[Rfam]
RNA sequence: CCGUGCUAAGCGGGGAGGUAGCGGUGCCCUGUACUCGCAAUCCGCUCUAGCGAGGCCGAAUCCCUUUCCGAGGUUACUCUUGGUGAGGUCUGCCGUAAGUAAAUAGUGUUGACGUUCGGGUCCCGCGCAAUGGGAAUCCGUGAACCCUGUCAGGUCCGGAAGGAAGCAGCAGUAAGCGGACACUCCCAUGUGCCGCGGGGUUGCCUGAACUGAGCUAGAUACUUACGUAACGCUCAUUGAAGGUAUAUCGACGAAAGGUGCACGG
Numbered sequence: 001c002c003g004u005g006c007u008a009a010g011c012g013g014g015g016a017g018g019u020a021g022c023g024g025u026g027c028c029c030u031g032u033a034c035u036c037g038c039a040a041u042c043c044g045c046u047c048u049a050g051c052g053a054g055g056c057c058g059a060a061u062c063c064c065u066u067u068c069c070g071a072g073g074u075u076a077c078u079c080u081u082g083g084u085g086a087g088g089u090c091u092g093c094c095g096u097a098a099g100u101a102a103a104u105a106g107u108g109u110u111g112a113c114g115u116u117c118g119g120g121u122c123c124c125g126c127g128c129a130a131u132g133g134g135a136a137u138c139c140g141u142g143a144a145c146c147c148u149g150u151c152a153g154g155u156c157c158g159g160a161a162g163g164a165a166g167c168a169g170c171a172g173u174a175a176g177c178g179g180a181c182a183c184u185c186c187c188a189u190g191u192g193c194c195g196c197g198g199g200g201u202u203g204c205c206u207g208a209a210c211u212g213a214g215c216u217a218g219a220u221a222c223u224u225a226c227g228u229a230a231c232g233c234u235c236a237u238u239g240a241a242g243g244u245a246u247a248u249c250g251a252c253g254a255a256a257g258g259u260g261c262a263c264g265g
Stems, first nucleotide, its partner, number of pairs: 001265006010056002012030004017025001019023001034054005063258006072249003078242001080240008091229002095226006103220002105216003114210008122199006128190002131188005137180005147172004155164003
RNA: Bacterial large signal recognition particle RNA
Organism: Bacillus salinus